[Rfam]
RNA sequence: GUUGCAAGUUUGAGGCCAUAGCAGAAGUGCUCAUGGUGCAGCCUGGUCAAAUUACAACAAAUCUGAGAAAUCUGCU
Numbered sequence: 001g002u003u004g005c006a007a008g009u010u011u012g013a014g015g016c017c018a019u020a021g022c023a024g025a026a027g028u029g030c031u032c033a034u035g036g037u038g039c040a041g042c043c044u045g046g047u048c049a050a051a052u053u054a055c056a057a058c059a060a061a062u063c064u065g066a067g068a069a070a071u072c073u074g075c076u
Stems, first nucleotide, its partner, number of pairs: 013044004020076006027039003048065002051062003
A member of the RNA family "Mammalian CPEB3 ribozyme" from Crocodylus porosus, 76 nucleotides long. The source organism's lineage runs through Eukaryota, Bilateria, Teleostomi, Sauropsida and Crocodylus. The family's consensus secondary structure is taken from published work.